[Rfam]
Shown here is a 110-nucleotide RNA sequence from Miscanthus lutarioriparius, a member of the family "MIR5565 microRNA precursor family". Pairs were carried over by alignment from the consensus structure, which was predicted with RNAalifold. The family has 7 seed sequences and 3,346 matches in Rfam 15.1. Lineage of the source: Eukaryota > Euphyllophyta > Liliopsida > Poales > Miscanthus. Rfam links the family to the GO terms miRNA-mediated post-transcriptional gene silencing and RISC complex.
RNA sequence: GUAGUCGGAUUCGCAUCAAUCCACAUGUGUUGGAGUAGAUUAGCGUGCAAUUUAAACAAAAUUCCACCUCAAUUCACUCCCAACACAUGUGAAUUGAGGUAAAUCUGAUA
Numbered sequence: 001g002u003a004g005u006c007g008g009a010u011u012c013g014c015a016u017c018a019a020u021c022c023a024c025a026u027g028u029g030u031u032g033g034a035g036u037a038g039a040u041u042a043g044c045g046u047g048c049a050a051u052u053u054a055a056a057c058a059a060a061a062u063u064c065c066a067c068c069u070c071a072a073u074u075c076a077c078u079c080c081c082a083a084c085a086c087a088u089g090u091g092a093a094u095u096g097a098g099g100u101a102a103a104u105c106u107g108a109u110a
Stems, first nucleotide, its partner, number of pairs: 004109008013100002016097005022091011035077002038074004043069001045067003